Shown here is a 68-nucleotide RNA from Bacillus sp. FJAT-49711, a member of the family "Bacillaceae-1 RNA". Taxonomically the source falls in Bacillus (Bacteria, Bacillati, Bacilli, Bacillaceae). The base pairs follow the family's consensus structure, which is taken from published work.

RNA sequence: CGAGACUCCUGGUCGGCUAAAGACGGCCACGUCCUGUGGCCAACGCCGACACUAGGACGUCCUGUCCG
Numbered sequence: 001c002g003a004g005a006c007u008c009c010u011g012g013u014c015g016g017c018u019a020a021a022g023a024c025g026g027c028c029a030c031g032u033c034c035u036g037u038g039g040c041c042a043a044c045g046c047c048g049a050c051a052c053u054a055g056g057a058c059g060u061c062c063u064g065u066c067c068g
Base pairs, nucleotide, nucleotide: 012050013049014048015047016046017045026040027039028038029037030036055067056066057065058064